[Rfam]
RNA sequence: AAUCAGUGAAGCCGUAUCACUUUAAUAACGGGGCGGAAUCUGAAAAGCCCAAUGAGUAAGAAAACA
Dot-bracket structure: .....((((.......))))...........(((....[.......)))..........]......
A member of the RNA family "DUF805 RNA" from Oryza sativa, 66 nucleotides long. It is annotated as a cis-regulatory element.